Nucleotides: 136
Stems, first nucleotide, its partner, number of pairs: 003061006016047009073129004078125001082121002093112005
Number, partner (000 for none) and nucleotide at each position: 001000g002000a003061g004060c005059a006058u007057a008056c009000u010000u011000g012000u013000a014000g015000a016047c017046c018045u019044u020043g021042u022041c023040u024039g025000a026000c027000u028000u029000u030000g031000c032000u033000c034000a035000u036000g037000g038000c039024c040023a041022g042021g043020c044019a045018g046017g047016g048000g049000g050000g051000a052000c053000a054000g055000u056008g057007u058006a059005u060004g061003c062000a063000a064000g065000a066000a067000u068000a069000a070000u071000u072000u073129g074128g075127a076126g077000u078125u079000u080000a081000u082121g083120u084000g085000a086000g087000u088000u089000c090000u091000a092000g093112c094111c095110a096109g097108c098000u099000u100000a101000a102000u103000c104000a105000c106000u107000g108097g109096c110095u111094g112093g113000a114000u115000a116000a117000a118000u119000u120083g121082c122000u123000g124000u125078g126076c127075u128074c129073c130000a131000a132000c133000a134000u135000u136000a
This 136-nucleotide sequence from Chrysochloris asiatica belongs to the Rfam family "Small nucleolar RNA SNORA58". Rfam links the family to the GO terms nucleolus and RNA processing. Its Rfam clan is "SNORA44 clan". NCBI's taxonomy places the organism under Eukaryota, Metazoa, Chordata, Gnathostomata, Chrysochloris. The family's RNA type in Rfam is H/ACA-box small nucleolar RNA. ACA52 is a member of the H/ACA class of snoRNA that guide the sites of modification of uridines to pseudouridines. On this family, see Huttenhofer et al., EMBO J 2001: "RNomics: an experimental approach that identifies 201 candidates for novel, small, non-messenger RNAs in mouse".